[Rfam]
RNA sequence: GUCAGCAGUACAUUAGCAGCACGUAAAUAUUGGUGUUAACUCUGUAAAUAUCUCCAGUAUUAACUGUGCUGCUGAAGUAAAGUUGGC
Numbered sequence: 001g002u003c004a005g006c007a008g009u010a011c012a013u014u015a016g017c018a019g020c021a022c023g024u025a026a027a028u029a030u031u032g033g034u035g036u037u038a039a040c041u042c043u044g045u046a047a048a049u050a051u052c053u054c055c056a057g058u059a060u061u062a063a064c065u066g067u068g069c070u071g072c073u074g075a076a077g078u079a080a081a082g083u084u085g086g087c
Base pairs, nucleotide, nucleotide: 001087002086003085004084005083006082013075014074015073016072017071018070019069020068021067022066023065024063026061027060028059029058030057031056032055033054035052
The record is an 87-nucleotide RNA sequence from Pelusios castaneus, which matches "mir-15 microRNA precursor family" in Rfam. This family represents the related mir-15a and mir-15b sequences. In humans miR-15a and miR-16 are clustered within 0.5 kb at 13q14. This region has been shown to be deleted in more than half of B cell chronic lymphocytic leukaemias (CLL). Both miR-15a and miR-16 are deleted or down-regulated in more than two thirds of CLL cases. The mature sequence is excised from the 5' arm of the hairpin. Rfam links the family to the GO terms RISC complex and miRNA-mediated post-transcriptional gene silencing. Pairs were carried over by alignment from the consensus structure, which was predicted with RNAalifold. Taxonomically the source falls in Pelusios (Eukaryota, Opisthokonta, Amniota, Pleurodira). The literature on the family includes a 2001 paper in Science by Lagos-Quintana et al., "Identification of novel genes coding for small expressed RNAs".